[Rfam]
Background:
A member of the RNA family "Small nucleolar RNA Z107/R87" from Artemisia annua, 106 nucleotides long. A search with the family's covariance model found it, with a score of 92 bits. Rfam classes the family as a C/D-box small nucleolar RNA.
RNA sequence: GGUCGUGGUGAUGACUCGGAAAUUCAAGCUCAACAGACCGGAAUGCAGUCUUUUCUCAUUUCUGAGAUCUGGUUGCGUGUCGACAAUCCCGCUGAACUGAGCGAUC
Numbered sequence: 001g002g003u004c005g006u007g008g009u010g011a012u013g014a015c016u017c018g019g020a021a022a023u024u025c026a027a028g029c030u031c032a033a034c035a036g037a038c039c040g041g042a043a044u045g046c047a048g049u050c051u052u053u054u055c056u057c058a059u060u061u062c063u064g065a066g067a068u069c070u071g072g073u074u075g076c077g078u079g080u081c082g083a084c085a086a087u088c089c090c091g092c093u094g095a096a097c098u099g100a101g102c103g104a105u106c
Base pairs, nucleotide, nucleotide: 001106002105003104004103005102006101
Dot-bracket structure: ((((((..............................................................................................))))))